[Rfam]
RNA sequence: UGGCAAGGAAGCGCUUGACUGGUUCGGUUACAGCUGAGUGUGGAGCCAGACCGUGGGUUAUGCGGAUACACCACAAGCCGAAUAGAUUCUUCGGAAUUGAAGGGAAACGAAAAAG
Numbered sequence: 001u002g003g004c005a006a007g008g009a010a011g012c013g014c015u016u017g018a019c020u021g022g023u024u025c026g027g028u029u030a031c032a033g034c035u036g037a038g039u040g041u042g043g044a045g046c047c048a049g050a051c052c053g054u055g056g057g058u059u060a061u062g063c064g065g066a067u068a069c070a071c072c073a074c075a076a077g078c079c080g081a082a083u084a085g086a087u088u089c090u091u092c093g094g095a096a097u098u099g100a101a102g103g104g105a106a107a108c109g110a111a112a113a114a115g
Stems, first nucleotide, its partner, number of pairs: 001048004011041007019033003024081004063109002085098004

The family of this 115-nucleotide sequence is "drum RNA". The family's RNA type in Rfam is small RNA. The base pairs follow the family's consensus structure, which is taken from published work. About the family: Firmicutes, Bacteroidetes (1 example), Proteobacteria (2 examples), Spirochaetes (2 examples).